The record is a 105-nucleotide sequence from Tomitella fengzijianii, which matches "mraW RNA" in Rfam.
The family's RNA type in Rfam is cis-regulatory element.

RNA sequence: GGUCUCGGCGAAUGUCACGAGGCCUCCGCCCGAACGGUCCUGACGUACUUCCCCAACGCCAGGCACGGUCGGCCGGAGACCCCAGGACAUUCGCCUCUGCGUUUU
Numbered sequence: 001g002g003u004c005u006c007g008g009c010g011a012a013u014g015u016c017a018c019g020a021g022g023c024c025u026c027c028g029c030c031c032g033a034a035c036g037g038u039c040c041u042g043a044c045g046u047a048c049u050u051c052c053c054c055a056a057c058g059c060c061a062g063g064c065a066c067g068g069u070c071g072g073c074c075g076g077a078g079a080c081c082c083c084a085g086g087a088c089a090u091u092c093g094c095c096u097c098u099g100c101g102u103u104u105u
Stems, first nucleotide, its partner, number of pairs: 010092007021081002024078005030072004035067002039063004044058003
It scores 53 bits against the family's covariance model.